[Rfam]
RNA: Group II catalytic intron D1-D4-4
RNA sequence: UUGCCAGUGAAAGUCUGGUCAAGGUAAUCGCCAGUGAGCCUUGUAGCGAACCUCCAAUGCUUUUGGGUGACCGAUUGUGUUGAAGCGAGGUAUGCCUGUGAGAAACAGGUGCAAAAUAGCAGUCCGUAACAUAA
Numbered sequence: 001u002u003g004c005c006a007g008u009g010a011a012a013g014u015c016u017g018g019u020c021a022a023g024g025u026a027a028u029c030g031c032c033a034g035u036g037a038g039c040c041u042u043g044u045a046g047c048g049a050a051c052c053u054c055c056a057a058u059g060c061u062u063u064u065g066g067g068u069g070a071c072c073g074a075u076u077g078u079g080u081u082g083a084a085g086c087g088a089g090g091u092a093u094g095c096c097u098g099u100g101a102g103a104a105a106c107a108g109g110u111g112c113a114a115a116a117u118a119g120c121a122g123u124c125c126g127u128a129a130c131a132u133a134a
Base pairs, nucleotide, nucleotide: 020043021042022041023040024039050091051090052089053088054087055082056081057080058079059078060077064073066071094110095109096108097107098106099105111127112126